[Rfam]
RNA: tRNA
Organism: Helobdella robusta
RNA sequence: GUUUCUGUGGUGUAGUGGUUAUCACGUUCGCCUAACACGCGAAAGGUCCUCAGUUCGAGCCUGGGCAGAAACA
Numbered sequence: 001g002u003u004u005c006u007g008u009g010g011u012g013u014a015g016u017g018g019u020u021a022u023c024a025c026g027u028u029c030g031c032c033u034a035a036c037a038c039g040c041g042a043a044a045g046g047u048c049c050u051c052a053g054u055u056c057g058a059g060c061c062u063g064g065g066c067a068g069a070a071a072c073a
Base pairs, nucleotide, nucleotide: 001072002071003070004069005068006067007066010025011024012023027043028042029041030040031039049065050064051063052062053061